Rfam assigns this 132-nucleotide RNA sequence to the family "Small Cajal body specific RNA 11".
The family has 24 seed sequences and 853 matches in Rfam 15.1.
RNA sequence: UUGUCCUGGCCUAGGCCAUUUCUGCUCCCCCGCGCUCAGUCCUAGCAGAGUAGUCUGGCAGGACGCACAGCAAUCUCCCUCUCAGUUUAGGAGGGCCGUCUCCUAAGAAUAGGGCUGGCAGGAAAGGACAAU
Dot-bracket structure: .(((((((.((............(((.(.(.((...........)).).).)))..)))))))))............(((.((...........((((((..(((....)))))).)))..)).))).....
scaRNAs are a specific class of small nuclear RNAs which localise to the Cajal bodies and guide the modification of RNA polymerase II transcribed spliceosomal RNAs U1, U2, U4, U5 and U12.